[Rfam]
RNA sequence: AAGCGCAGAAAUAUAUUGGCGCGCCGAUAUGCGUUGGUAUAUGGAGCUUUCGGGAGGGGUUUGUGUAGUGUAACCUCAAAUCGGCUUAGGCAUAUUGCUGAAAGAAAAUACACCGA
Numbered sequence: 001a002a003g004c005g006c007a008g009a010a011a012u013a014u015a016u017u018g019g020c021g022c023g024c025c026g027a028u029a030u031g032c033g034u035u036g037g038u039a040u041a042u043g044g045a046g047c048u049u050u051c052g053g054g055a056g057g058g059g060u061u062u063g064u065g066u067a068g069u070g071u072a073a074c075c076u077c078a079a080a081u082c083g084g085c086u087u088a089g090g091c092a093u094a095u096u097g098c099u100g101a102a103a104g105a106a107a108a109u110a111c112a113c114c115g116a
Base pairs, nucleotide, nucleotide: 001049002048003047004046011042012041013040014039015038016037017036018035019034020033021032022031024084025083026082027081065111066110067109089099090098091097092096
RNA: drum RNA
Organism: Lachnospiraceae bacterium MD329